[Rfam]
RNA sequence: CUCAAGGAAGCGCUUUGUCCACGUAGACACAAAAUGAGUCCUUGAGGGCGCGCUUUGUGUCCACGUGGAUAAAGCGCUUUCUUGGGU
Dot-bracket structure: (((((((((((((((((((((.((.((((((((.((.(.((....)).).)).)))))))).)).))))))))))))))))))))).
A member of the RNA family "MIR7486 microRNA precursor family" from Gossypium aridum, 87 nucleotides long. The organism belongs to Gossypium, within Eukaryota. Gene Ontology terms of the family: miRNA-mediated post-transcriptional gene silencing and RISC complex.